The record is a 71-nucleotide sequence from Carnobacteriaceae bacterium zg-C25, which matches "L17 ribosomal protein downstream element" in Rfam. Taxonomically the source falls in Carnobacteriaceae (Bacteria, Bacillati, Bacilli, Lactobacillales). The family's RNA type in Rfam is cis-regulatory element.

RNA sequence: AGAGCGUUAUGAUGGUUGAAAUCAUUCACAGUCUAGCUCGUUAUAUUACCGCAGGUCAAAAGACCUGUGGU
Dot-bracket structure: .((((.....(((...((((....))))..)))..))))........(((((((((......)))))))))
Numbered sequence: 001a002g003a004g005c006g007u008u009a010u011g012a013u014g015g016u017u018g019a020a021a022u023c024a025u026u027c028a029c030a031g032u033c034u035a036g037c038u039c040g041u042u043a044u045a046u047u048a049c050c051g052c053a054g055g056u057c058a059a060a061a062g063a064c065c066u067g068u069g070g071u
Stems, first nucleotide, its partner, number of pairs: 002039004011033003017028004048071009